RNA: mir-981 microRNA precursor family
RNA sequence: UCUUGAAUGGUUCAGGUUUCACGAUUUGCGGAUUUUGCAAUACUUAAAUUCGUUGUCGACGAAACCUGCUCGGCAUCAAGA
Numbered sequence: 001u002c003u004u005g006a007a008u009g010g011u012u013c014a015g016g017u018u019u020c021a022c023g024a025u026u027u028g029c030g031g032a033u034u035u036u037g038c039a040a041u042a043c044u045u046a047a048a049u050u051c052g053u054u055g056u057c058g059a060c061g062a063a064a065c066c067u068g069c070u071c072g073g074c075a076u077c078a079a080g081a
Stems, first nucleotide, its partner, number of pairs: 001081006013068008030051005